[Rfam]
RNA sequence: UGUAAAACCCAUAAGAGCAGUAGUUCCCCAUCCAGGAGCUACUUUACCAUAUUCUGAAUUA
Dot-bracket structure: ................(.(((((((((.......))))))))).)................

A member of the RNA family "Plastid-psbN 5UTR RNA" from Pinus sibirica, 61 nucleotides long. By type it is a cis-regulatory element. The literature on the family includes a 2023 paper in Plant Commun by Richter et al., "Retrograde signaling in plants: A critical review focusing on the GUN pathway and beyond". From the family's description: Plastid psbN is a non-coding RNA (ncRNA) recognised in plastids. It was reported as a conserved 11 stem-loop in the prime untranslated region (5UTR) of psbN genes. It has been reported that the motif is retained in a subset of mature transcripts in barley, which can suggests a possible role in transcript alternative 5 prime processing. Taxonomically the source falls in Pinus subgen. Strobus (Eukaryota, Viridiplantae, Euphyllophyta, Conifers I). It is one of the family's seed sequences.